[Rfam]
RNA sequence: GAAAAUAGUUGAUGAGUUGUUUAAUUUUAAGAAUUUUUAUCUUAAUUAAGGAAGGAGUGAUUUCAAUGGCACAAGAUAUCAUUUCAACAAUCGGUGACUUAGUAAAAUGGAUUAUCGACACAGUGAACAAAUUCACUAAAAAAUAAGAUGAAUAAUUAAUUACUUUCAUUGUAAAUUUGUUAUCUUCGUAUAGUACUAAAAGUAUGAGUUAUUAAGCCAUCCCAACUUAAUAACCAUGUAAAAUUAGCAAGUGAGUAACAUUUGCUAGUAGAGUUAGUUUCCUUGGACUCAGUGCUAUGUAUUUUUCUUAAUUAUCAUUACAGAUAAUUAUUUCUAGCAUGUAAGCUAUCGUAAACAACAUCGAUUUAUCAUUAUUUGAUAAAUAAAAUUUUUUUCAUAAUUAAUAACAUCCCCA
Numbered sequence: 001g002a003a004a005a006u007a008g009u010u011g012a013u014g015a016g017u018u019g020u021u022u023a024a025u026u027u028u029a030a031g032a033a034u035u036u037u038u039a040u041c042u043u044a045a046u047u048a049a050g051g052a053a054g055g056a057g058u059g060a061u062u063u064c065a066a067u068g069g070c071a072c073a074a075g076a077u078a079u080c081a082u083u084u085c086a087a088c089a090a091u092c093g094g095u096g097a098c099u100u101a102g103u104a105a106a107a108u109g110g111a112u113u114a115u116c117g118a119c120a121c122a123g124u125g126a127a128c129a130a131a132u133u134c135a136c137u138a139a140a141a142a143a144u145a146a147g148a149u150g151a152a153u154a155a156u157u158a159a160u161u162a163c164u165u166u167c168a169u170u171g172u173a174a175a176u177u178u179g180u181u182a183u184c185u186u187c188g189u190a191u192a193g194u195a196c197u198a199a200a201a202g203u204a205u206g207a208g209u210u211a212u213u214a215a216g217c218c219a220u221c222c223c224a225a226c227u228u229a230a231u232a233a234c235c236a237u238g239u240a241a242a243a244u245u246a247g248c249a250a251g252u253g254a255g256u257a258a259c260a261u262u263u264g265c266u267a268g269u270a271g272a273g274u275u276a277g278u279u280u281c282c283u284u285g286g287a288c289u290c291a292g293u294g295c296u297a298u299g300u301a302u303u304u305u306u307c308u309u310a311a312u313u314a315u316c317a318u319u320a321c322a323g324a325u326a327a328u329u330a331u332u333u334c335u336a337g338c339a340u341g342u343a344a345g346c347u348a349u350c351g352u353a354a355a356c357a358a359c360a361u362c363g364a365u366u367u368a369u370c371a372u373u374a375u376u377u378g379a380u381a382a383a384u385a386a387a388a389u390u391u392u393u394u395u396c397a398u399a400a401u402u403a404a405u406a407a408c409a410u411c412c413c414c415a
Stems, first nucleotide, its partner, number of pairs: 014362002016359008027045006054085008063076002091118007098110002123136005147184003151181001154178002161173003190298008208234009243269003252260002271290005309330008335348004364384008